[Rfam]
RNA sequence: AUAGUUUGCACGCUGAAUCCCUGAUGAUCUCAGGGAACGGGGGAACCAAACGAAGCCGCGUACGGGCUUCAGGGGUGAAUCCUUAAGAACAAAGGACGGGUACUCUCAAACCCGAAUCCGACAGCUAACCUCGUAAGCGUUAUUGAGAGAGAAG
Numbered sequence: 001a002u003a004g005u006u007u008g009c010a011c012g013c014u015g016a017a018u019c020c021c022u023g024a025u026g027a028u029c030u031c032a033g034g035g036a037a038c039g040g041g042g043g044a045a046c047c048a049a050a051c052g053a054a055g056c057c058g059c060g061u062a063c064g065g066g067c068u069u070c071a072g073g074g075g076u077g078a079a080u081c082c083u084u085a086a087g088a089a090c091a092a093a094g095g096a097c098g099g100g101u102a103c104u105c106u107c108a109a110a111c112c113c114g115a116a117u118c119c120g121a122c123a124g125c126u127a128a129c130c131u132c133g134u135a136a137g138c139g140u141u142a143u144u145g146a147g148a149g150a151g152a153a154g
Stems, first nucleotide, its partner, number of pairs: 011139004018036007037134006047072001073119003081095004098113004
c-di-AMP riboswitch aptamer (ydaO/yuaA leader): a 154-nucleotide sequence from Paenibacillus sp. 598K. The source organism's lineage runs through Bacteria, Bacillota, Caryophanales, Paenibacillaceae and Paenibacillus. The literature on the family includes a 2004 paper in Proc Natl Acad Sci U S A by Barrick et al., "New RNA motifs suggest an expanded scope for riboswitches in bacterial genetic control".